This 82-nucleotide sequence from Anabarilius grahami belongs to the Rfam family "mir-31 microRNA precursor family". Its Rfam clan is "mir-31 microRNA precursor family". Pairs were carried over by alignment from the consensus structure, which was predicted with RNAalifold. The organism belongs to Anabarilius, within Eukaryota.
RNA sequence: AAGAGAAAACAUGGCAAGAUGUUGGCAUAGCUGUUUGUGUUUACGGCCCUGCUAUGCCUCCAUAUUGCCAUUUUUUUUACUU
Dot-bracket structure: ....(((((.(((((((.(((..((((((((...................))))))))..))).))))))).))))).....